[Rfam]
RNA sequence: GCAGAGCCCCGGCCAUGCCCGAGGGUGCGAUUGAGCCGGGGAACGCCCUACAUUGGUGGGCGAGCAACAUCGGC
Numbered sequence: 001g002c003a004g005a006g007c008c009c010c011g012g013c014c015a016u017g018c019c020c021g022a023g024g025g026u027g028c029g030a031u032u033g034a035g036c037c038g039g040g041g042a043a044c045g046c047c048c049u050a051c052a053u054u055g056g057u058g059g060g061c062g063a064g065c066a067a068c069a070u071c072g073g074c
Stems, first nucleotide, its partner, number of pairs: 001028003008023001010021003035074005044062005
RNA: Burkholderiales-2 RNA